The family of this 236-nucleotide sequence from Bos taurus is "Small nucleolar RNA SNORD17". The base pairs follow the family's consensus structure, which was predicted with RNAalifold. The family has 19 seed sequences and 1,015 matches in Rfam 15.1. Taxonomically the source falls in Bos (Eukaryota, Tetrapoda, Laurasiatheria, Bovidae). A reference for the family is Huttenhofer et al. (2001), "RNomics: an experimental approach that identifies 201 candidates for novel, small, non-messenger RNAs in mouse", EMBO J. The snoRNA HBI-43 belongs to the C/D family of snoRNAs, guiding 2'O-ribose methylation at position U3797 of the 28S rRNA. Pseudouridylation in position U3797 is predicted to be guided by the H/ACA snoRNA ACA48. The sequence is in the family's curated seed alignment. It is annotated as a C/D-box small nucleolar RNA.
[Rfam]
Nucleotides: 236
Base pairs, nucleotide, nucleotide: 010235011234012233013232014231017228018227019226020225023221024220025219026218027217028216029215030213031212034209035208038180039179040178041177042175043174044173045172046171048169049168050166051165052164053163054162055160056159058089059088060087061086062085063084064083065081066080067079068078069077070076092157093156094155095154096153099152100151105144106143107141110138111137113135114134115133116132117131118130120128121127122126182207183206184205185204186203187202188201189200191199192198
Number, partner (000 for none) and nucleotide at each position: 001000g002000u003000g004000a005000a006000a007000u008000g009000a010235u011234g012233a013232u014231u015000c016000a017228g018227u019226u020225u021000a022000u023221c024220c025219a026218u027217u028216c029215g030213c031212u032000g033000a034209g035208u036000g037000c038180g039179c040178u041177g042175c043174a044173c045172u046171g047000a048169c049168c050166u051165u052164c053163u054162u055160c056159c057000a058089a059088g060087c061086c062085u063084g064083g065081g066080u067079u068078c069077c070076u071000g072000u073000u074000c075000u076070g077069g078068g079067a080066a081065c082000u083064c084063u085062g086061g087060g088059u089058u090000a091000c092157g093156u094155g095154g096153u097000u098000g099152c100151c101000a102000a103000a104000u105144g106143c107141c108000c109000u110138g111137c112000a113135g114134u115133c116132u117131g118130c119000u120128g121127u122126g123000u124000u125000c126122u127121a128120c129000u130118g131117u132116g133115g134114a135113c136000g137111g138110c139000u140000u141107g142000u143106g144105u145000g146000u147000u148000g149000g150000u151100g152099g153096a154095c155094u156093a157092c158000c159056g160055g161000u162054a163053a164052g165051a166050a167000u168049g169048g170000c171046u172045g173044g174043u175042g176000u177041c178040a179039g180038c181000a182207g183206g184205g185204a186203u187202g188201g189200g190000u191199c192198c193000c194000u195000g196000u197000g198192g199191g200189c201188u202187c203186a204185u205184c206183u207182c208035a209034c210000c211000a212031a213030g214000a215029u216028g217027a218026g219025u220024g221023g222000u223000g224000g225020a226019a227018a228017u229000c230000u231014g232013a233012u234011c235010a236000c